[Rfam]
RNA sequence: AGCUGAUGCACACGGUGGCUUCCUCCCAGUUCCCACCGCACCAGCUGUUCCCCUCUGGAGGUUUUUAACCUUCACACUUUAAGGGCCCUGGAGUAAUCCGGUGGCCCCUUUUU
Numbered sequence: 001a002g003c004u005g006a007u008g009c010a011c012a013c014g015g016u017g018g019c020u021u022c023c024u025c026c027c028a029g030u031u032c033c034c035a036c037c038g039c040a041c042c043a044g045c046u047g048u049u050c051c052c053c054u055c056u057g058g059a060g061g062u063u064u065u066u067a068a069c070c071u072u073c074a075c076a077c078u079u080u081a082a083g084g085g086c087c088c089u090g091g092a093g094u095a096a097u098c099c100g101g102u103g104g105c106c107c108c109u110u111u112u113u
Stems, first nucleotide, its partner, number of pairs: 001046005007040003015036004056074007083107005088101004
Alphaproteobacterial ar15: a 113-nucleotide RNA sequence from Gillisella ampelina. Its family is annotated with protein binding in the Gene Ontology. Pairs were carried over by alignment from the consensus structure. The literature on the family includes a 2012 paper in RNA Biol by del Val et al., "A survey of sRNA families in alpha-proteobacteria". The family's RNA type in Rfam is small RNA.